[Rfam]
RNA: c-di-AMP riboswitch aptamer (ydaO/yuaA leader)
Organism: Streptomyces sp. IB201691-2A2
RNA sequence: AGAUCCCAGCCACCCAUUCACUCGCGUACGGCAGGAGCGGGGGACCCAGGUAGGCCGCCGGUCCGGAUUCCGGAACGGCUAGGGGUGAAGCCGCGUGCAGCAUGCGGCCGGGCAGCUCCCGCCCGAACCCGACAGCUCACCUCGCAGGCGUCGGAGAGGAAACGC
Numbered sequence: 001a002g003a004u005c006c007c008a009g010c011c012a013c014c015c016a017u018u019c020a021c022u023c024g025c026g027u028a029c030g031g032c033a034g035g036a037g038c039g040g041g042g043g044a045c046c047c048a049g050g051u052a053g054g055c056c057g058c059c060g061g062u063c064c065g066g067a068u069u070c071c072g073g074a075a076c077g078g079c080u081a082g083g084g085g086u087g088a089a090g091c092c093g094c095g096u097g098c099a100g101c102a103u104g105c106g107g108c109c110g111g112g113c114a115g116c117u118c119c120c121g122c123c124c125g126a127a128c129c130c131g132a133c134a135g136c137u138c139a140c141c142u143c144g145c146a147g148g149c150g151u152c153g154g155a156g157a158g159g160a161a162a163c164g165c
Stems, first nucleotide, its partner, number of pairs: 004036003037145006047082001083130003091107004110124004